[Rfam]
RNA sequence: CCGUUCAACUCGUUCCGGCAUAGAUCGGAACUACGGGAG
Numbered sequence: 001c002c003g004u005u006c007a008a009c010u011c012g013u014u015c016c017g018g019c020a021u022a023g024a025u026c027g028g029a030a031c032u033a034c035g036g037g038a039g
Stems, first nucleotide, its partner, number of pairs: 001036004012031007